[Rfam]
RNA: Potassium channel RNA editing signal
RNA sequence: GUGGGCUAUGGUGACAUGCGGCCGAUAACUGUAUGGGGCAAAAUUGUGGGUUCACUGUGUGCUAUUUCCGGCGUCUUAACCAUCGCUCUCCCAGUCCCGGUAAUCGUCAGCAAU
Numbered sequence: 001g002u003g004g005g006c007u008a009u010g011g012u013g014a015c016a017u018g019c020g021g022c023c024g025a026u027a028a029c030u031g032u033a034u035g036g037g038g039c040a041a042a043a044u045u046g047u048g049g050g051u052u053c054a055c056u057g058u059g060u061g062c063u064a065u066u067u068c069c070g071g072c073g074u075c076u077u078a079a080c081c082a083u084c085g086c087u088c089u090c091c092c093a094g095u096c097c098c099g100g101u102a103a104u105c106g107u108c109a110g111c112a113a114u
Stems, first nucleotide, its partner, number of pairs: 001114002004111001008107004014101002018097001021095002037077002040074001049063003
Dot-bracket structure: ((.(...((((..((..(..((..............((.(........(((.........)))..........).))................)).)..))..))))...).))